The family of this 290-nucleotide RNA sequence from Dinothrombium tinctorium is "RNase MRP".

RNA sequence: GCUGUUGAGCAAGUCUUGCUUUCGGAGGCAAUUGAUGCCUUCGGGGAAAGUCCCCGGACGCGAAGCGCAGAGAGUGCAGACACAGUCAGCACGUGUCUAACUCAGCGAUGGCUCGUGGCCGCGACGAGCAGCGCGAUAGGAUCCGCCCUCCCGCGCUGCUCUGAGCCCGCGCUCACCGAACGCACCGAGCUCGUCGCCGAGGCCUUCGUCUUCUCCAACAGCUCAUUAAUGCAAGAGGCAUGCGGACACUGUUCGCAUGCUAACCAAAUGGGGCUUACUCUGAAUAACAG
Numbered sequence: 001g002c003u004g005u006u007g008a009g010c011a012a013g014u015c016u017u018g019c020u021u022u023c024g025g026a027g028g029c030a031a032u033u034g035a036u037g038c039c040u041u042c043g044g045g046g047a048a049a050g051u052c053c054c055c056g057g058a059c060g061c062g063a064a065g066c067g068c069a070g071a072g073a074g075u076g077c078a079g080a081c082a083c084a085g086u087c088a089g090c091a092c093g094u095g096u097c098u099a100a101c102u103c104a105g106c107g108a109u110g111g112c113u114c115g116u117g118g119c120c121g122c123g124a125c126g127a128g129c130a131g132c133g134c135g136a137u138a139g140g141a142u143c144c145g146c147c148c149u150c151c152c153g154c155g156c157u158g159c160u161c162u163g164a165g166c167c168c169g170c171g172c173u174c175a176c177c178g179a180a181c182g183c184a185c186c187g188a189g190c191u192c193g194u195c196g197c198c199g200a201g202g203c204c205u206u207c208g209u210c211u212u213c214u215c216c217a218a219c220a221g222c223u224c225a226u227u228a229a230u231g232c233a234a235g236a237g238g239c240a241u242g243c244g245g246a247c248a249c250u251g252u253u254c255g256c257a258u259g260c261u262a263a264c265c266a267a268a269u270g271g272g273g274c275u276u277a278c279u280c281u282g283a284a285u286a287a288c289a290g
Base pairs, nucleotide, nucleotide: 002290003289004288005287006286007285010282011281014236015235016234017233018232019231022044023043024042025041026040027039028038029037030036048276049275050274052273053272054271055270067077068076069075078098079097080096081095082094083093100212106208107207108206110204111203112201113200114199115198121194122193123192124191238260239259240258241257242256243255244254245253
About this RNA
Lineage of the source: Eukaryota > Chelicerata > Prostigmata > Parasitengona > Dinothrombium. By type it is a ribozyme. The literature on the family includes a 1993 paper in FASEB J by Schmitt et al., "Secondary structure of RNase MRP RNA as predicted by phylogenetic comparison". The match comes from Rfam's covariance-model search (88 bits).